[Rfam]
RNA: Cyano-1 RNA
Organism: cyanobacterium endosymbiont of Rhopalodia gibberula
RNA sequence: AUAUGUGUGAGGAGUAAGAAUGAAAGACAAAAGCUCUUGGGGUCGAAACAUGGCAAGACUCCCGAGAGUUUUCUUUU
Numbered sequence: 001a002u003a004u005g006u007g008u009g010a011g012g013a014g015u016a017a018g019a020a021u022g023a024a025a026g027a028c029a030a031a032a033g034c035u036c037u038u039g040g041g042g043u044c045g046a047a048a049c050a051u052g053g054c055a056a057g058a059c060u061c062c063c064g065a066g067a068g069u070u071u072u073c074u075u076u077u
Base pairs, nucleotide, nucleotide: 030072031071032070033069034068037065038064039063040062041061042059043058044057